[Rfam]
RNA: Small nucleolar RNA ACA64
RNA sequence: CCGGUCUGAAAACCGCCUCUGUUGCUUCAGUGAGCAGAGGGGAGAUUACCGGGCCUAACAGAACUCUGGUGCAUUAUGCUUAUCACACACAGUCAUGCCGGUGUGAUAAAACCCAUGUACCCACAUGU
Numbered sequence: 001c002c003g004g005u006c007u008g009a010a011a012a013c014c015g016c017c018u019c020u021g022u023u024g025c026u027u028c029a030g031u032g033a034g035c036a037g038a039g040g041g042g043a044g045a046u047u048a049c050c051g052g053g054c055c056u057a058a059c060a061g062a063a064c065u066c067u068g069g070u071g072c073a074u075u076a077u078g079c080u081u082a083u084c085a086c087a088c089a090c091a092g093u094c095a096u097g098c099c100g101g102u103g104u105g106a107u108a109a110a111a112c113c114c115a116u117g118u119a120c121c122c123a124c125a126u127g128u
Base pairs, nucleotide, nucleotide: 005052006051008049009047010046014042016040021035022034023033068121070119071118072117073116074115080109081108082107083106084105088100